[Rfam]
RNA sequence: CGUGUGGAAUUAUAAAUAUAGCAGAGCAACGGGGCUCCCUCAAAAAUAUUGCACAAUAUUUUUAAGGGGCUCUUUCUAUUUUCUUGGAGAAAUUUUUCUC
Number, nucleotide and partner (000 for none) at each position: 001c000002g000003u000004g079005u078006g077007g076008a075009a074010u000011u000012a000013u000014a000015a000016a000017u000018a000019u000020a000021g027022c026023a000024g000025a000026g022027c021028a000029a000030c000031g073032g072033g071034g070035c069036u000037c068038c067039c066040u065041c000042a063043a062044a061045a060046a059047u058048a057049u056050u055051g000052c000053a000054c000055a050056a049057u048058a047059u046060u045061u044062u043063u042064a000065a040066g039067g038068g037069g035070c034071u033072c032073u031074u009075u008076c007077u006078a005079u004080u000081u000082u000083c000084u000085u000086g000087g100088a099089g098090a097091a096092a000093u000094u000095u000096u091097u090098c089099u088100c087
The record is a 100-nucleotide sequence from Listeria monocytogenes, which matches "Listeria sRNA rli56" in Rfam. The source organism's lineage runs through Bacteria, Bacillota, Bacilli, Listeriaceae and Listeria monocytogenes serotype 1/2a. Rfam classes the family as a cis-regulatory element. On this family, see Toledo-Arana et al., Nature 2009: "The Listeria transcriptional landscape from saprophytism to virulence".